[Rfam]
The record is a 75-nucleotide RNA from Alloiococcus otitis, which matches "L17 ribosomal protein downstream element" in Rfam. The base pairs follow the family's consensus structure, which is taken from published work. The source organism's lineage runs through Bacteria, Bacillati, Bacillota, Carnobacteriaceae and Alloiococcus otitis. A search with the family's covariance model found it, with a score of 53 bits.
RNA sequence: GGAGCGUUACGAUGAUGGGACUCAUUAGUUCCAAGUGUCUAGCUCUCGUUUUCCUGGAGGCAACUUGCUUCCAGG
Numbered sequence: 001g002g003a004g005c006g007u008u009a010c011g012a013u014g015a016u017g018g019g020a021c022u023c024a025u026u027a028g029u030u031c032c033a034a035g036u037g038u039c040u041a042g043c044u045c046u047c048g049u050u051u052u053c054c055u056g057g058a059g060g061c062a063a064c065u066u067g068c069u070u071c072c073a074g075g
Stems, first nucleotide, its partner, number of pairs: 002045004011039003017032006053075009